[Rfam]
RNA sequence: CACCCGUCGUGGCAAGCGACCAGGGGCGCAGGCUGGUAAUUGGAACAGGGGCCAGCCAUGUGCACUGCGGGGGAGCGCGGGGCCGGUAGUCGGGGGACUGCCGGCCCCAUUUUA
Numbered sequence: 001c002a003c004c005c006g007u008c009g010u011g012g013c014a015a016g017c018g019a020c021c022a023g024g025g026g027c028g029c030a031g032g033c034u035g036g037u038a039a040u041u042g043g044a045a046c047a048g049g050g051g052c053c054a055g056c057c058a059u060g061u062g063c064a065c066u067g068c069g070g071g072g073g074a075g076c077g078c079g080g081g082g083c084c085g086g087u088a089g090u091c092g093g094g095g096g097a098c099u100g101c102c103g104g105c106c107c108c109a110u111u112u113u114a
Stems, first nucleotide, its partner, number of pairs: 003071005009065003012061002016029003031057006040049002079108013

Rfam assigns this 114-nucleotide sequence from Pseudoxanthomonas sp. CF125 to the family "Xanthomonadaceae sRNA asX1". A reference for the family is Schmidtke et al. (2011), "Genome-wide transcriptome analysis of the plant pathogen Xanthomonas identifies sRNAs with putative virulence functions", Nucleic Acids Res.